[Rfam]
RNA sequence: AAGUAACUCCGAGUCUUGGGACAAUUUGGACGAAGAUAGGAGUACCGGCUGGUUGGCACAGCCCGGAGUCUACCUCUAUGACCUCUCCUGCGGAUUCCAACCGCAACGAGAAGUGGUAGACUGCAAACCAUAAUAUCCCAACUGCGGUCGGGAUUCCUCCACCUUCAGGUGGAGGA
Dot-bracket structure: ..(...((((..((((((............))).))).))))...)(((((.......)))))...(((((.((.((.(.........(((((.......)))))....).)).)).))))).............((((.((....)).)))).(((((((((....)))))))))
Sense overlapping transcript RNA 0042 (sot): a 176-nucleotide RNA sequence from Halopenitus malekzadehii. It is associated with IS1341-type transposase (tnpB) genes, at the 3'-end in H. salinarum NRC-1. The tetraloop structural motif may be functional. On this family, see Gomes-Filho et al., RNA Biol 2015: "Sense overlapping transcripts in IS1341-type transposase genes are functional non-coding RNAs in archaea". By type it is a small RNA. The base pairs follow the family's consensus structure, which was predicted with RNAfold. The family has 2 seed sequences and 196 matches in Rfam 15.1.